[Rfam]
RNA sequence: UCACAGUGCACUAUUACUCACGGUACGAGUUGAUAGUGGCAUAGCGCGUACCAAAAGUAAUAAUGAAUCGUGA
Numbered sequence: 001u002c003a004c005a006g007u008g009c010a011c012u013a014u015u016a017c018u019c020a021c022g023g024u025a026c027g028a029g030u031u032g033a034u035a036g037u038g039g040c041a042u043a044g045c046g047c048g049u050a051c052c053a054a055a056a057g058u059a060a061u062a063a064u065g066a067a068u069c070g071u072g073a
Base pairs, nucleotide, nucleotide: 009065010064012062013061014060015059016058017057018056022052023051024050025049026048027047029045